[Rfam]
RNA sequence: GUGCGAUGAAUGUUUGGAUAAGUUUCGGCUGAUUCUGAUUGAUGACACAUUGAAUAUGCUGAGCAC
Number, nucleotide and partner (000 for none) at each position: 001g066002u065003g064004c063005g000006a000007u000008g000009a000010a000011u000012g000013u000014u000015u000016g000017g000018a000019u000020a000021a000022g000023u000024u000025u000026c000027g000028g000029c000030u000031g000032a000033u000034u000035c000036u000037g000038a000039u000040u000041g000042a000043u000044g000045a000046c000047a000048c000049a000050u000051u000052g000053a000054a000055u000056a000057u000058g000059c000060u000061g000062a000063g004064c003065a002066c001
A member of the RNA family "Caenorhabditis snoRNA ceN108", 66 nucleotides long. For this family Rfam cites "Systematic identification of non-coding RNA 2,2,7-trimethylguanosine cap structures in Caenorhabditis elegans" (Jia et al., BMC Mol Biol, 2007). Rfam links the family to the GO terms nucleolus and RNA processing.